[Rfam]
RNA sequence: CUGUGAAUAUUCUCACUGUUCUGAUUUUGUAAUUAGGGCAGGCCAAAUGUUUACUAUGUUAAGACCCUGCCCCCAGAUCUAGUUCUUUACCUAGGUCUAGUUUUAUAAAUGCUGGUGAUUAAA
Numbered sequence: 001c002u003g004u005g006a007a008u009a010u011u012c013u014c015a016c017u018g019u020u021c022u023g024a025u026u027u028u029g030u031a032a033u034u035a036g037g038g039c040a041g042g043c044c045a046a047a048u049g050u051u052u053a054c055u056a057u058g059u060u061a062a063g064a065c066c067c068u069g070c071c072c073c074c075a076g077a078u079c080u081a082g083u084u085c086u087u088u089a090c091c092u093a094g095g096u097c098u099a100g101u102u103u104u105a106u107a108a109a110u111g112c113u114g115g116u117g118a119u120u121a122a123a
Stems, first nucleotide, its partner, number of pairs: 003054003016041011064116003069112002073100001075098008
Overview
The family of this 123-nucleotide RNA sequence from Moschus moschiferus is "Small nucleolar RNA SNORA72". U72 is a member of the H/ACA class of snoRNAs. The snoRNA gene is located in intron 4 of the ribosomal L30 protein gene in human, mouse and chicken. Pairs were carried over by alignment from the consensus structure, which was predicted with PFOLD.